[Rfam]
RNA sequence: UGAAUUUGUUGCAAAAUAUGCGGCCUGAAAACCAGAGACUAGCCGACGCUUUUUUUUAAAGUGUCGGUUAUUUUUUUGG
Numbered sequence: 001u002g003a004a005u006u007u008g009u010u011g012c013a014a015a016a017u018a019u020g021c022g023g024c025c026u027g028a029a030a031a032c033c034a035g036a037g038a039c040u041a042g043c044c045g046a047c048g049c050u051u052u053u054u055u056u057u058a059a060a061g062u063g064u065c066g067g068u069u070a071u072u073u074u075u076u077u078g079g
Stems, first nucleotide, its partner, number of pairs: 011021002040070009
Enterobacterial sRNA STnc240: a 79-nucleotide RNA from Klebsiella pneumoniae.
The base pairs follow the family's consensus structure, which was predicted with WAR.
NCBI's taxonomy places the organism under Bacteria, Enterobacterales, Klebsiella pneumoniae complex, Klebsiella pneumoniae, Klebsiella pneumoniae subsp. pneumoniae.
Rfam classes the family as a small RNA.
The sequence is in the family's curated seed alignment.